[Rfam]
Rfam assigns this 453-nucleotide sequence from Geomys breviceps to the family "Vertebrate telomerase RNA".
The family has 37 seed sequences and 523 matches in Rfam 15.1.
Clan: Telomerase clan.
Rfam's curators put it in the seed alignment.
RNA sequence: GGCCGGCGUGCCUGGGAGGGGGGGCUGGUCCCACUCUUCUAACCCUAAGGGUGUCGGCUGUAGGCGCCGUGCUUUUUACUUCCCCGCGCGCUGUUUUUCUGGCUGGCUUUCAGCGAGCGGAAAAAGCUUUGGUCUACAGGCCACUCACUUUGUAUCCCGAAACCAAAUUGAAAAAAAAAAAUGCCAGCUCCGGCCGGUCCACCCCUCCCGGGGUCCUGCGGCCCGGCCGCCCGCCCGAACCCCCCGCGACCCGCCUGAGGCCACGGCCGGCCCGGGGCCUCUGCGGAGGUGCCCAUUGCCGCCGCGAAGAGUUAGGCUCUGUCAGCCGCGGGAUCCGCGCGGGCCGGGCCGCGGCCGGACGCCGAUCCGCAGGGACAGCAACGGAACCGGCCCCUUCGCCCUGUGCGCUUCCCGGAGCUGUGGGAUGAGCACCCGGGGUCGGCUCCUACAGUU
Numbered sequence: 001g002g003c004c005g006g007c008g009u010g011c012c013u014g015g016g017a018g019g020g021g022g023g024g025c026u027g028g029u030c031c032c033a034c035u036c037u038u039c040u041a042a043c044c045c046u047a048a049g050g051g052u053g054u055c056g057g058c059u060g061u062a063g064g065c066g067c068c069g070u071g072c073u074u075u076u077u078a079c080u081u082c083c084c085c086g087c088g089c090g091c092u093g094u095u096u097u098u099c100u101g102g103c104u105g106g107c108u109u110u111c112a113g114c115g116a117g118c119g120g121a122a123a124a125a126g127c128u129u130u131g132g133u134c135u136a137c138a139g140g141c142c143a144c145u146c147a148c149u150u151u152g153u154a155u156c157c158c159g160a161a162a163c164c165a166a167a168u169u170g171a172a173a174a175a176a177a178a179a180a181a182u183g184c185c186a187g188c189u190c191c192g193g194c195c196g197g198u199c200c201a202c203c204c205c206u207c208c209c210g211g212g213g214u215c216c217u218g219c220g221g222c223c224c225g226g227c228c229g230c231c232c233g234c235c236c237g238a239a240c241c242c243c244c245c246g247c248g249a250c251c252c253g254c255c256u257g258a259g260g261c262c263a264c265g266g267c268c269g270g271c272c273c274g275g276g277g278c279c280u281c282u283g284c285g286g287a288g289g290u291g292c293c294c295a296u297u298g299c300c301g302c303c304g305c306g307a308a309g310a311g312u313u314a315g316g317c318u319c320u321g322u323c324a325g326c327c328g329c330g331g332g333a334u335c336c337g338c339g340c341g342g343g344c345c346g347g348g349c350c351g352c353g354g355c356c357g358g359a360c361g362c363c364g365a366u367c368c369g370c371a372g373g374g375a376c377a378g379c380a381a382c383g384g385a386a387c388c389g390g391c392c393c394c395u396u397c398g399c400c401c402u403g404u405g406c407g408c409u410u411c412c413c414g415g416a417g418c419u420g421u422g423g424g425a426u427g428a429g430c431a432c433c434c435g436g437g438g439u440c441g442g443c444u445c446c447u448a449c450a451g452u453u
Stems, first nucleotide, its partner, number of pairs: 014209008022200009071127005085119003089115005102188006108181003215373007229355003232351001233349004241343003245339003250332005262306001264304003268301004274294003308320004384445002387442008403432004410425004